[Rfam]
Nucleotides: 154
Stems, first nucleotide, its partner, number of pairs: 004023005032053008054070005085153004091149004095144003100137002106132004111127005
Number, partner (000 for none) and nucleotide at each position: 001000a002000u003000g004023c005022c006021u007020u008019a009000a010000a011000c012000u013000g014000a015000u016000g017000a018000g019008u020007a021006a022005g023004g024000a025000a026000a027000a028000u029000a030000a031000c032053g033052a034051u035050g036049c037048g038047g039046g040000g041000u042000g043000a044000c045000g046039c047038c048037c049036g050035u051034g052033u053032c054070c055069u056068c057067g058066u059000u060000g061000a062000a063000c064000u065000u066058a067057c068056g069055a070054g071000a072000u073000c074000a075000a076000u077000u078000u079000u080000u081000g082000a083000a084000a085153g086152g087151g088150u089000a090000c091149a092148g093147g094146u095144c096143u097142g098000c099000c100137c101136g102000c103000u104000c105000u106132g107131g108130u109129g110000a111127c112126u113125c114124g115123c116000c117000u118000a119000c120000u121000u122000u123115g124114c125113g126112a127111g128000a129109u130108g131107c132106c133000u134000u135000g136101c137100g138000g139000g140000a141000c142097u143096a144095g145000g146094a147093c148092c149091u150088a151087c152086c153085c154000c

U12 minor spliceosomal RNA: a 154-nucleotide sequence from Tetraodon nigroviridis. Gene Ontology terms of the family: pre-mRNA branch point binding, U12 snRNP and mRNA branch site recognition. The organism belongs to Tetraodon, within Eukaryota.